[Rfam]
RNA sequence: UUUCGUCGCUCGGGGCGCGUCCUCCGGAUGGUCGGAGGUCGCUGAGAAGCACCCGGGAACCUGAUCCGGUUCGGACCGGCGUAGGGAACGCGACGAUCGAACGAC
Numbered sequence: 001u002u003u004c005g006u007c008g009c010u011c012g013g014g015g016c017g018c019g020u021c022c023u024c025c026g027g028a029u030g031g032u033c034g035g036a037g038g039u040c041g042c043u044g045a046g047a048a049g050c051a052c053c054c055g056g057g058a059a060c061c062u063g064a065u066c067c068g069g070u071u072c073g074g075a076c077c078g079g080c081g082u083a084g085g086g087a088a089c090g091c092g093a094c095g096a097u098c099g100a101a102c103g104a105c
Stems, first nucleotide, its partner, number of pairs: 006093004011055004016049001017042003021038006060085004066079004
RNA: TPP riboswitch aptamer (THI element)
Organism: Sandaracinus amylolyticus